[Rfam]
RNA: mir-194 microRNA precursor family
RNA sequence: UAGUGCUCGCUUUUUGUAACAGCAACUCCAUGUGGAAGCACAUGAACAUCCAGUGGGGGGGCUGUUACUGGUGGAGAGUCA
Number, nucleotide and partner (000 for none) at each position: 001u000002a000003g000004u000005g000006c000007u000008c000009g000010c074011u073012u000013u000014u000015u000016g068017u067018a066019a065020c064021a063022g062023c061024a000025a000026c058027u057028c056029c055030a054031u053032g000033u052034g051035g050036a000037a000038g000039c000040a000041c000042a000043u000044g000045a000046a000047c000048a000049u000050c035051c034052a033053g031054u030055g029056g028057g027058g026059g000060g000061g023062c022063u021064g020065u019066u018067a017068c016069u000070g000071g000072u000073g011074g010075a000076g000077a000078g000079u000080c000081a000